About this RNA:
This 85-nucleotide RNA from Sesamum indicum belongs to the Rfam family "Small nucleolar RNA snoR14". It scores 87 bits against the family's covariance model. The base pairs follow the family's consensus structure.
RNA sequence: GCGAGGUGACGAUGAAACUCAUGAAGUCUGUCAAUCCACUGAUCUUGUGUGAUGUCAACCAUGAAUCCCGACAGGUUCUGAUCGC
Numbered sequence: 001g002c003g004a005g006g007u008g009a010c011g012a013u014g015a016a017a018c019u020c021a022u023g024a025a026g027u028c029u030g031u032c033a034a035u036c037c038a039c040u041g042a043u044c045u046u047g048u049g050u051g052a053u054g055u056c057a058a059c060c061a062u063g064a065a066u067c068c069c070g071a072c073a074g075g076u077u078c079u080g081a082u083c084g085c
Stems, first nucleotide, its partner, number of pairs: 001085004